Shown here is a 104-nucleotide RNA sequence from Carnobacterium sp. 17-4, a member of the family "S10-Clostridia ribosomal protein leader". Lineage of the source: Bacteria > Bacillati > Bacilli > Lactobacillales > Carnobacterium. Rfam classes the family as a cis-regulatory leader. The literature on the family includes a 2020 paper in BMC Microbiol by Eckert and Weinberg, "Discovery of 20 novel ribosomal leader candidates in bacteria and archaea".
RNA sequence: CAAUGGCUAUGAAACGAGAGGUUACGACACACCCGGCCGCUUUGUCACGGCGCGUAUGACGGAAAUUUUCGUGGAGCAAUGUCUAAUUUAUAAAAAAUAGGCGA
Numbered sequence: 001c002a003a004u005g006g007c008u009a010u011g012a013a014a015c016g017a018g019a020g021g022u023u024a025c026g027a028c029a030c031a032c033c034c035g036g037c038c039g040c041u042u043u044g045u046c047a048c049g050g051c052g053c054g055u056a057u058g059a060c061g062g063a064a065a066u067u068u069u070c071g072u073g074g075a076g077c078a079a080u081g082u083c084u085a086a087u088u089u090a091u092a093a094a095a096a097a098u099a100g101g102c103g104a
Stems, first nucleotide, its partner, number of pairs: 014072003018069004025061002028058002080103004088097002
Dot-bracket structure: .............(((.((((...((.((...........................)).))....))))))).......((((....((......))..)))).